[Rfam]
RNA sequence: AUUAUUACUCACGGUACGAGUUUGAAGUGUCACAGCGCGUACCAAAAGUAAUAAUGUG
Numbered sequence: 001a002u003u004a005u006u007a008c009u010c011a012c013g014g015u016a017c018g019a020g021u022u023u024g025a026a027g028u029g030u031c032a033c034a035g036c037g038c039g040u041a042c043c044a045a046a047a048g049u050a051a052u053a054a055u056g057u058g
Stems, first nucleotide, its partner, number of pairs: 001055009013043006020036001
Shown here is a 58-nucleotide RNA from Mus musculus, a member of the family "mir-126 microRNA precursor family". For this family Rfam cites "Clustering and conservation patterns of human microRNAs" (Altuvia et al., Nucleic Acids Res, 2005).